[Rfam]
RNA sequence: GGAGGUAGGCCCUCCGGUAGCGGCUGGCAAGAGCAGCUACCAAACCACCCUAAGCUGCAUAAGUCAAAAGCUUGUGUGGUGAGCAUUAGGGCAAAAGGUAGAACAGAAGUUCUAUCAGGU
Numbered sequence: 001g002g003a004g005g006u007a008g009g010c011c012c013u014c015c016g017g018u019a020g021c022g023g024c025u026g027g028c029a030a031g032a033g034c035a036g037c038u039a040c041c042a043a044a045c046c047a048c049c050c051u052a053a054g055c056u057g058c059a060u061a062a063g064u065c066a067a068a069a070g071c072u073u074g075u076g077u078g079g080u081g082a083g084c085a086u087u088a089g090g091g092c093a094a095a096a097g098g099u100a101g102a103a104c105a106g107a108a109g110u111u112c113u114a115u116c117a118g119g120u
Stems, first nucleotide, its partner, number of pairs: 001015005016041006023034003046119001048091006054080002057077003061073004097116006
Group II catalytic intron D1-D4-2: a 120-nucleotide RNA sequence from Chitinophaga oryziterrae. On this family, see Bonen and Vogel, Trends Genet 2001: "The ins and outs of group II introns". The pairing is the family consensus, mapped onto this sequence. Rfam links the family to the GO term Group II intron splicing.